[Rfam]
This 37-nucleotide RNA sequence from Niastella yeongjuensis belongs to the Rfam family "DUF805b RNA".
RNA sequence: UCAGGCGUAGCCGAAAACCUGCAUAAUAGAGUAGGCG
Numbered sequence: 001u002c003a004g005g006c007g008u009a010g011c012c013g014a015a016a017a018c019c020u021g022c023a024u025a026a027u028a029g030a031g032u033a034g035g036c037g
Stems, first nucleotide, its partner, number of pairs: 002021004010036003
The organism belongs to Niastella, within Bacteria. The match comes from Rfam's covariance-model search (38 bits).